[Rfam]
RNA sequence: AUUAUUACACGCAAAGGUAAUAAUAGAUUGUUUAGGGGAAACUUUAAAUAAUUUAAAUCGGGGAGGAAAUGUCUUGAUUUA
Numbered sequence: 001a002u003u004a005u006u007a008c009a010c011g012c013a014a015a016g017g018u019a020a021u022a023a024u025a026g027a028u029u030g031u032u033u034a035g036g037g038g039a040a041a042c043u044u045u046a047a048a049u050a051a052u053u054u055a056a057a058u059c060g061g062g063g064a065g066g067a068a069a070u071g072u073c074u075u076g077a078u079u080u081a
Stems, first nucleotide, its partner, number of pairs: 001024008025054013055080006